Vertebrate telomerase RNA: a 461-nucleotide RNA from Helopsaltes ochotensis. It is annotated as a non-coding RNA gene. On this family, see Chen et al., Cell 2000: "Secondary structure of vertebrate telomerase RNA". It scores 131 bits against the family's covariance model. Gene Ontology terms of the family: telomerase activity, telomerase catalytic core complex and telomere maintenance via telomerase.
RNA sequence: CCGCGCCGGGGUGUGCAGGCCCUACGGCCAACUAACCCUAAUGGCGGCUGCACCCCUCACACCCGCCCGCUGUUUUACUCGCUGACUUUCAGCGGGCAAAGGGGGCGGCCUAGGGGAAAGGGGGGGCGGGCAUGGGGGCAAAAGAGUUCCGGCCUCAAAAAAAGCCAGCGAGGGGGAUCCACACCCCGGCCCACCCUGGGGUCCCUGUCCCUCCUCCGUAACCAGGGAAGGUCCCGCCCUCGCCCCUCGUGGAGGCCGCGGUCGGCAGCCCCAGCGCCGCUGCCGCCGCGAAGAGUUCGUCUCUGUCAGCCUCGGCGACGGCCGGGGACUAGAGGGCCGGCCCGCCCCCCCUGGGCAGCCGGGGGACCCCAGCAGAGCAAACCGGGCGCGGCGCCGCGGGGCGCUGAGCAGCCGUGGCUCCCAGAGACGUGGAGUGCGCGGUCGGCGCCGCCCCGACACCC
Numbered sequence: 001c002c003g004c005g006c007c008g009g010g011g012u013g014u015g016c017a018g019g020c021c022c023u024a025c026g027g028c029c030a031a032c033u034a035a036c037c038c039u040a041a042u043g044g045c046g047g048c049u050g051c052a053c054c055c056c057u058c059a060c061a062c063c064c065g066c067c068c069g070c071u072g073u074u075u076u077a078c079u080c081g082c083u084g085a086c087u088u089u090c091a092g093c094g095g096g097c098a099a100a101g102g103g104g105g106c107g108g109c110c111u112a113g114g115g116g117a118a119a120g121g122g123g124g125g126g127c128g129g130g131c132a133u134g135g136g137g138g139c140a141a142a143a144g145a146g147u148u149c150c151g152g153c154c155u156c157a158a159a160a161a162a163a164g165c166c167a168g169c170g171a172g173g174g175g176g177a178u179c180c181a182c183a184c185c186c187c188g189g190c191c192c193a194c195c196c197u198g199g200g201g202u203c204c205c206u207g208u209c210c211c212u213c214c215u216c217c218g219u220a221a222c223c224a225g226g227g228a229a230g231g232u233c234c235c236g237c238c239c240u241c242g243c244c245c246c247u248c249g250u251g252g253a254g255g256c257c258g259c260g261g262u263c264g265g266c267a268g269c270c271c272c273a274g275c276g277c278c279g280c281u282g283c284c285g286c287c288g289c290g291a292a293g294a295g296u297u298c299g300u301c302u303c304u305g306u307c308a309g310c311c312u313c314g315g316c317g318a319c320g321g322c323c324g325g326g327g328a329c330u331a332g333a334g335g336g337c338c339g340g341c342c343c344g345c346c347c348c349c350c351c352u353g354g355g356c357a358g359c360c361g362g363g364g365g366a367c368c369c370c371a372g373c374a375g376a377g378c379a380a381a382c383c384g385g386g387c388g389c390g391g392c393g394c395c396g397c398g399g400g401g402c403g404c405u406g407a408g409c410a411g412c413c414g415u416g417g418c419u420c421c422c423a424g425a426g427a428c429g430u431g432g433a434g435u436g437c438g439c440g441g442u443c444g445g446c447g448c449c450g451c452c453c454c455g456a457c458a459c460c461c
Stems, first nucleotide, its partner, number of pairs: 005190011017178001020176004053105004065097008081169004086164001087162003196372007232326003236322003240317001243314001257290005263285004292304004384453004390449006412441005419434001421432002